RNA sequence: GCAGAUCGCGAGUUUGUGCGUGAAUCUAACGCCAUUUCGCCUAGGGAUUCGAACCCAAACAGGCAGUGGACGGUCCCGAUAACGGGGUUAGAUUCACGCACAAACUAGAGAUAUGCCU
Numbered sequence: 001g002c003a004g005a006u007c008g009c010g011a012g013u014u015u016g017u018g019c020g021u022g023a024a025u026c027u028a029a030c031g032c033c034a035u036u037u038c039g040c041c042u043a044g045g046g047a048u049u050c051g052a053a054c055c056c057a058a059a060c061a062g063g064c065a066g067u068g069g070a071c072g073g074u075c076c077c078g079a080u081a082a083c084g085g086g087g088u089u090a091g092a093u094u095c096a097c098g099c100a101c102a103a104a105c106u107a108g109a110g111a112u113a114u115g116c117c118u
Base pairs, nucleotide, nucleotide: 001116002115003114005112006111007110011106012105013104014103015102016101017100018099019098020097021096022095023094024093025092026091028089029088030087032085033084
The record is a 118-nucleotide RNA from Actinidia chinensis, which matches "MIR403 microRNA precursor family" in Rfam. It scores 75 bits against the family's covariance model. The family has 13 seed sequences and 215 matches in Rfam 15.1. The source organism's lineage runs through Eukaryota, Spermatophyta, Gunneridae, Actinidia and Actinidia chinensis. Pairs were carried over by alignment from the consensus structure, which was predicted with WAR. Its family is annotated with RISC complex and miRNA-mediated post-transcriptional gene silencing in the Gene Ontology. A reference for the family is Mica et al. (2009), "High throughput approaches reveal splicing of primary microRNA transcripts and tissue specific expression of mature microRNAs in Vitis vinifera", BMC Genomics.